[Rfam]
RNA: mir-52 microRNA precursor family
Organism: Caenorhabditis remanei
RNA sequence: CCCUCUACUACCGUCCACCCGUACAUAUGUUUCCGUGCUUGACAUUGUGCUCAAUCACGUUACAAUAUAUGGGUCGCCGGUCUUAGGCGGU
Dot-bracket structure: ................(((((((.((.(((...((((.((((........)))).))))..))))).))))))).................
Numbered sequence: 001c002c003c004u005c006u007a008c009u010a011c012c013g014u015c016c017a018c019c020c021g022u023a024c025a026u027a028u029g030u031u032u033c034c035g036u037g038c039u040u041g042a043c044a045u046u047g048u049g050c051u052c053a054a055u056c057a058c059g060u061u062a063c064a065a066u067a068u069a070u071g072g073g074u075c076g077c078c079g080g081u082c083u084u085a086g087g088c089g090g091u
Stems, first nucleotide, its partner, number of pairs: 017074007025066002028064003034059004039054004